The family of this 98-nucleotide sequence from Digitaria exilis is "Small nucleolar RNA R30/Z108". Rfam describes the family as follows. snoR30 is a C/D box small nucleolar RNA which acts as a methylation guide for 18S ribosomal RNA in plants. Gene Ontology terms of the family: RNA processing and nucleolus. For this family Rfam cites "Experimental RNomics. Identification of 140 Candidates for Small Non-Messenger RNAs in the Plant Arabidopsis thaliana" (Marker et al., Curr Biol, 2002). The family's RNA type in Rfam is C/D-box small nucleolar RNA. The match comes from Rfam's covariance-model search (101 bits).
RNA sequence: GGUUGUUGCGAUGAGGAUAACAAGCUCCCUCUUCUGAAAGCAUUGAGGACAGCCGCUGGCAGAAUCGAACCAAAUACCAUAUUGCCACCACUGAGUAA
Numbered sequence: 001g002g003u004u005g006u007u008g009c010g011a012u013g014a015g016g017a018u019a020a021c022a023a024g025c026u027c028c029c030u031c032u033u034c035u036g037a038a039a040g041c042a043u044u045g046a047g048g049a050c051a052g053c054c055g056c057u058g059g060c061a062g063a064a065u066c067g068a069a070c071c072a073a074a075u076a077c078c079a080u081a082u083u084g085c086c087a088c089c090a091c092u093g094a095g096u097a098a
Stems, first nucleotide, its partner, number of pairs: 006098004